The family of this 68-nucleotide RNA sequence from Prevotellaceae bacterium KH2P17 is "Bacteroidetes FopS (family of paralogous sRNAs)". The family's consensus secondary structure is taken from published work.
RNA sequence: GUGUUUUUCAUAGUAUUAGAUUUAAGGUUAACAAGGUUGGGACUCGGCGGAGCCCCAUUUUUUUUGCC
Number, nucleotide and partner (000 for none) at each position: 001g000002u000003g000004u000005u000006u000007u000008u000009c000010a000011u000012a000013g000014u000015a000016u000017u000018a000019g000020a000021u000022u000023u000024a000025a000026g000027g000028u000029u000030a000031a000032c000033a000034a000035g000036g000037u000038u000039g056040g055041g054042a000043c052044u051045c050046g000047g000048c000049g000050g045051a044052g043053c000054c041055c040056c039057a000058u000059u000060u000061u000062u000063u000064u000065u000066g000067c000068c000

Overview
About the family: The RNA-binding protein RbpB and BTncRNA_FopS sRNA are involved in the post-transcription regulation of polysaccharide utilisation loci (PUL). FopS sRNAs function as post-transcriptional repressors by binding to the vicinity of the start codon of the first mRNA of target PUL polycistrons, typically corresponding to the cognate SusC homolog, impeding translation of the respective glycan transporter. On this family, see Ruttiger et al., Nat Commun 2025: "The global RNA-binding protein RbpB is a regulator of polysaccharide utilization in Bacteroides thetaiotaomicron".